[Rfam]
RNA: Bacterial RNase P class A
Organism: Halpernia frigidisoli
RNA sequence: CGAGAAAAACAGCCUGUUGUCUUGAAUUUAUUCAAGGAGGAAAGUCCGGACACCACAGAGCAGCAAAGCGGUUAACAGCCGUCGGUCGCGAGAUCAGGACAAGUGCAACAGAAAGUAUGUAUAUUAAUUUAUAGUGAAACCAGGUAAACUCUUUGCGGUGCAAUGUUAAGUACAUCGAUUCUUUUAGAUUUAUCUAAAAUAGGCGUUGCUGGCGCUGAAAAUCGAGGGGUAAACAGCUAAAAUCCUGCAGCAAUGCAGGAUGUAGAUAAAUAACAGGCGUUCAAUUUAUUUUGAAAACAGAAUCCGGCUUAUCGUUUUUCUCGUGGU
Numbered sequence: 001c002g003a004g005a006a007a008a009a010c011a012g013c014c015u016g017u018u019g020u021c022u023u024g025a026a027u028u029u030a031u032u033c034a035a036g037g038a039g040g041a042a043a044g045u046c047c048g049g050a051c052a053c054c055a056c057a058g059a060g061c062a063g064c065a066a067a068g069c070g071g072u073u074a075a076c077a078g079c080c081g082u083c084g085g086u087c088g089c090g091a092g093a094u095c096a097g098g099a100c101a102a103g104u105g106c107a108a109c110a111g112a113a114a115g116u117a118u119g120u121a122u123a124u125u126a127a128u129u130u131a132u133a134g135u136g137a138a139a140c141c142a143g144g145u146a147a148a149c150u151c152u153u154u155g156c157g158g159u160g161c162a163a164u165g166u167u168a169a170g171u172a173c174a175u176c177g178a179u180u181c182u183u184u185u186a187g188a189u190u191u192a193u194c195u196a197a198a199a200u201a202g203g204c205g206u207u208g209c210u211g212g213c214g215c216u217g218a219a220a221a222u223c224g225a226g227g228g229g230u231a232a233a234c235a236g237c238u239a240a241a242a243u244c245c246u247g248c249a250g251c252a253a254u255g256c257a258g259g260a261u262g263u264a265g266a267u268a269a270a271u272a273a274c275a276g277g278c279g280u281u282c283a284a285u286u287u288a289u290u291u292u293g294a295a296a297a298c299a300g301a302a303u304c305c306g307g308c309u310u311a312u313c314g315u316u317u318u319u320c321u322c323g324u325g326g327u
Stems, first nucleotide, its partner, number of pairs: 001323010011312001012278007020037007042310003046307005051160004059210003063156005068082005083097001084095004098151002103149002105145002120133002123130001164235004175225005202216005242261008